[Rfam]
RNA: mir-1302 microRNA precursor family
RNA sequence: UUUUCAGUGUAAGUAUAUCUCAUGCAGUAUUUGGGAUAUACUUAUGCUAAAG
Numbered sequence: 001u002u003u004u005c006a007g008u009g010u011a012a013g014u015a016u017a018u019c020u021c022a023u024g025c026a027g028u029a030u031u032u033g034g035g036a037u038a039u040a041c042u043u044a045u046g047c048u049a050a051a052g
Base pairs, nucleotide, nucleotide: 006048007047008046009045010044011043012042014040015039016038018036019035020034021033022031